[Rfam]
RNA: MIR2912 microRNA precursor family
Organism: Populus deltoides
RNA sequence: UCUAGAACUCGAGAUAUGAGCUGAACACUGAACGAUGUCCGAAGGCUGCGGGACGGUUCGUACUUUUUCAUUGUUGCUACAAUUUGGACUUGAAAACGGCCUUGUUAAAUCUUGGGCUCCUCAUGAAAGUUGUAGGCCUAUGUCUUAACUUUCCAUC
Numbered sequence: 001u002c003u004a005g006a007a008c009u010c011g012a013g014a015u016a017u018g019a020g021c022u023g024a025a026c027a028c029u030g031a032a033c034g035a036u037g038u039c040c041g042a043a044g045g046c047u048g049c050g051g052g053a054c055g056g057u058u059c060g061u062a063c064u065u066u067u068u069c070a071u072u073g074u075u076g077c078u079a080c081a082a083u084u085u086g087g088a089c090u091u092g093a094a095a096a097c098g099g100c101c102u103u104g105u106u107a108a109a110u111c112u113u114g115g116g117c118u119c120c121u122c123a124u125g126a127a128a129g130u131u132g133u134a135g136g137c138c139u140a141u142g143u144c145u146u147a148a149c150u151u152u153c154c155a156u157c
Stems, first nucleotide, its partner, number of pairs: 003155001005153003009147001011146008020137001021135003025131001027130003035124003041120001044119002047116001050113004055106003060101001063099002073089003